The family of this 72-nucleotide sequence from Medicago truncatula is "MIR2629 microRNA precursor family". Its family is annotated with miRNA-mediated post-transcriptional gene silencing and RISC complex in the Gene Ontology.
[Rfam]
RNA sequence: UACCGAGGUUUUCCUCGGCAGUUAACUGCAGCCGUAUUUCUAAAACUUCGGCAGUUAACUGUCGAGGGGCAU
Number, nucleotide and partner (000 for none) at each position: 001u000002a000003c000004c000005g000006a000007g000008g000009u000010u000011u000012u068013c067014c000015u065016c064017g063018g062019c061020a060021g059022u058023u057024a056025a055026c054027u053028g052029c051030a000031g000032c000033c000034g000035u000036a000037u000038u000039u000040c000041u000042a000043a000044a000045a000046c000047u000048u000049c000050g000051g029052c028053a027054g026055u025056u024057a023058a022059c021060u020061g019062u018063c017064g016065a015066g000067g013068g012069g000070c000071a000072u000